[Rfam]
The family of this 130-nucleotide RNA sequence from Streptomyces sp. UH6 is "Streptomyces RNA 6925". It scores 82 bits against the family's covariance model. Rfam describes the family as follows. Identified by deep sequencing of transcriptome at the end of exponential growth phase. Sequencing size consistent with northern blot size. Streptomyces specific. Small 12 nt possible coding region observed. The source organism's lineage runs through Bacteria, Actinomycetota, Kitasatosporales, Streptomycetaceae and Streptomyces.
RNA sequence: UUGGUGUUGCCACGCUGAGACGCCCCUGGCAAGAGGUUCAGCGUGGUGAUGGAGGCGAUAUCCGCCCUUCCCGGGGCGGUACUGCCAUCAGGCGAGGUGUCCGGGGAGUUCCCGCUCCCUGGACACCGCC
Numbered sequence: 001u002u003g004g005u006g007u008u009g010c011c012a013c014g015c016u017g018a019g020a021c022g023c024c025c026c027u028g029g030c031a032a033g034a035g036g037u038u039c040a041g042c043g044u045g046g047u048g049a050u051g052g053a054g055g056c057g058a059u060a061u062c063c064g065c066c067c068u069u070c071c072c073g074g075g076g077c078g079g080u081a082c083u084g085c086c087a088u089c090a091g092g093c094g095a096g097g098u099g100u101c102c103g104g105g106g107a108g109u110u111c112c113c114g115c116u117c118c119c120u121g122g123a124c125a126c127c128g129c130c
Stems, first nucleotide, its partner, number of pairs: 001092002006050002010046009023035001024033001054086004062079007096127014